Notes:
A member of the RNA family "PyrR binding site" from Planococcus salinus, 123 nucleotides long. Lineage of the source: Bacteria > Bacillota > Bacilli > Caryophanaceae > Planococcus. By type it is a cis-regulatory element. It scores 60 bits against the family's covariance model. Pairs were carried over by alignment from the consensus structure, which is taken from published work. This family represents the PyrR binding site and terminator structure. A reference for the family is Bonner et al. (2001), "Molecular recognition of pyr mRNA by the Bacillus subtilis attenuation regulatory protein PyrR", Nucleic Acids Res.
RNA sequence: AUCACCUUUAAUAACAGUCCAGAGAGGCUGAGAAGGUAUAUAUGCUGGCUGGAAGUCUGUCUUCCAUGCUGAAUUUUUCUGCGCAUCUAUCCUCUUGCCUCUCCGGCAAGAGGUUUUUUUAUU
Numbered sequence: 001a002u003c004a005c006c007u008u009u010a011a012u013a014a015c016a017g018u019c020c021a022g023a024g025a026g027g028c029u030g031a032g033a034a035g036g037u038a039u040a041u042a043u044g045c046u047g048g049c050u051g052g053a054a055g056u057c058u059g060u061c062u063u064c065c066a067u068g069c070u071g072a073a074u075u076u077u078u079c080u081g082c083g084c085a086u087c088u089a090u091c092c093u094c095u096u097g098c099c100u101c102u103c104c105g106g107c108a109a110g111a112g113g114u115u116u117u118u119u120u121a122u123u
Stems, first nucleotide, its partner, number of pairs: 004037006015030005042074002045071001047069001050066006089115001091113009